Shown here is a 119-nucleotide sequence from Vibrio aerogenes, a member of the family "Ribosomal S15 leader". The family's consensus secondary structure is taken from published work. The organism belongs to Vibrio aerogenes, within Bacteria. The family is grouped with related families in Rfam's "Ribosomal Protein S15 Leader clan". The E. coli Ribosomal S15 gene 5' UTR can form two alternative structures. One that is a series of three hairpins, The other includes a pseudoknot. This structure causes translational regulation of the S15 protein. The alignment of this family contains only the final two hairpins which are conserved in other species, and also includes the complete region that forms the alternate structures. For this family Rfam cites "Pseudoknot and translational control in the expression of the S15 ribosomal protein" (Benard et al., Biochimie, 1996).
RNA sequence: CGUGUUGGCUGAGUCAGAGAUUGGCUGACACAUCUUAAAAUCUAAACUCUCAGGAGAAAUAUAUGUCUCUGAAUGCUGAAACUAAAGCAGCAAUCGUUGCUGAAUACGCGCGUGGUGAA
Numbered sequence: 001c002g003u004g005u006u007g008g009c010u011g012a013g014u015c016a017g018a019g020a021u022u023g024g025c026u027g028a029c030a031c032a033u034c035u036u037a038a039a040a041u042c043u044a045a046a047c048u049c050u051c052a053g054g055a056g057a058a059a060u061a062u063a064u065g066u067c068u069c070u071g072a073a074u075g076c077u078g079a080a081a082c083u084a085a086a087g088c089a090g091c092a093a094u095c096g097u098u099g100c101u102g103a104a105u106a107c108g109c110g111c112g113u114g115g116u117g118a119a
Stems, first nucleotide, its partner, number of pairs: 007026006050073001053070004